[Rfam]
RNA sequence: AUGCCAUCCCGUUAGGUGAGGCUCCUGUGUGUGGAUGUGUCUGUUGCCCAGAAAGGUCGAGAGACCCCAAUGGGUUGAACAGGCCGCGACCGAAUCAAGGUCCGGCUUAAUACAGACCGUCAAGCUUCGGCUUGGACUAACCACACAGUGCUGAAGCUUUGACAUUGGGAUCACCC
Numbered sequence: 001a002u003g004c005c006a007u008c009c010c011g012u013u014a015g016g017u018g019a020g021g022c023u024c025c026u027g028u029g030u031g032u033g034g035a036u037g038u039g040u041c042u043g044u045u046g047c048c049c050a051g052a053a054a055g056g057u058c059g060a061g062a063g064a065c066c067c068c069a070a071u072g073g074g075u076u077g078a079a080c081a082g083g084c085c086g087c088g089a090c091c092g093a094a095u096c097a098a099g100g101u102c103c104g105g106c107u108u109a110a111u112a113c114a115g116a117c118c119g120u121c122a123a124g125c126u127u128c129g130g131c132u133u134g135g136a137c138u139a140a141c142c143a144c145a146c147a148g149u150g151c152u153g154a155a156g157c158u159u160u161g162a163c164a165u166u167g168g169g170a171u172c173a174c175c176c
Stems, first nucleotide, its partner, number of pairs: 006171005011163002013098001015158003020152003025148007039117001041115004046075005055066004082107004089101003119137003

A member of the RNA family "M-box riboswitch aptamer (ykoK leader)" from Natronoglycomyces albus, 176 nucleotides long. Gene Ontology terms of the family: regulation of gene expression and response to magnesium ion. M-box riboswitch, also know as ykoK leader is described as a metaloregulatory RNA that sense divalent metals and function as a genetic control element of genes related to divalent metal transport in bacteria. It was first reported upstream of the B.subtilis ykoK gene and genes with related functions in other bacteria. The pairing is the family consensus, mapped onto this sequence.